[Rfam]
RNA sequence: CGACUGCUCAAAGCAUAUACCAGCCAAGAGCCGAGGCCAUACGGACAGCCGAGUCGAAUGCCGA
Numbered sequence: 001c002g003a004c005u006g007c008u009c010a011a012a013g014c015a016u017a018u019a020c021c022a023g024c025c026a027a028g029a030g031c032c033g034a035g036g037c038c039a040u041a042c043g044g045a046c047a048g049c050c051g052a053g054u055c056g057a058a059u060g061c062c063g064a
Base pairs, nucleotide, nucleotide: 001056002055003054004053005052006031007030008029009028
RNA: Streptococcus sRNA SpF59 (ldcC RNA)